[Rfam]
RNA sequence: GGUUGAUGAUGACAAAUCCAAAGGCUUGUUUUCAAAGCAUUUGCAGUGGCCGCCUGAGAGCCUUCGACUUUUUUGCUGGACUUUGAGGACUUGUACUGCUUCAAUCCUUCCUUAGAUGUCUGAGACC
Numbered sequence: 001g002g003u004u005g006a007u008g009a010u011g012a013c014a015a016a017u018c019c020a021a022a023g024g025c026u027u028g029u030u031u032u033c034a035a036a037g038c039a040u041u042u043g044c045a046g047u048g049g050c051c052g053c054c055u056g057a058g059a060g061c062c063u064u065c066g067a068c069u070u071u072u073u074u075g076c077u078g079g080a081c082u083u084u085g086a087g088g089a090c091u092u093g094u095a096c097u098g099c100u101u102c103a104a105u106c107c108u109u110c111c112u113u114a115g116a117u118g119u120c121u122g123a124g125a126c127c
Stems, first nucleotide, its partner, number of pairs: 001127004060090001062088006
Small nucleolar RNA SNORD14: a 127-nucleotide RNA from Hibiscus trionum.
The family's RNA type in Rfam is C/D-box small nucleolar RNA.
A search with the family's covariance model found it, with a score of 64 bits.
About the family: U14 small nucleolar RNA (U14 snoRNA) is required for early cleavages of eukaryotic precursor rRNAs. In yeasts, this molecule possess a stem-loop region (known as the Y-domain) which is essential for function. A similar structure, but with a different consensus sequence, is found in plants, but is absent in vertebrates.
Rfam links the family to the GO terms RNA processing and nucleolus.
The family has 18 seed sequences and 4,559 matches in Rfam 15.1.
The literature on the family includes a 1996 paper in Nucleic Acids Res by Samarsky et al., "An essential domain in Saccharomyces cerevisiae U14 snoRNA is absent in vertebrates, but conserved in other yeasts".